msiK RNA: a 59-nucleotide RNA sequence from Isoptericola sediminis. By type it is a cis-regulatory element. It scores 57 bits against the family's covariance model.

RNA sequence: GCAGCACACCCGACCACAACGGAUCGUCCGGCACGUACCUGCCGGUGGAGGGACACCAU
Numbered sequence: 001g002c003a004g005c006a007c008a009c010c011c012g013a014c015c016a017c018a019a020c021g022g023a024u025c026g027u028c029c030g031g032c033a034c035g036u037a038c039c040u041g042c043c044g045g046u047g048g049a050g051g052g053a054c055a056c057c058a059u
Stems, first nucleotide, its partner, number of pairs: 010052002014048003028045006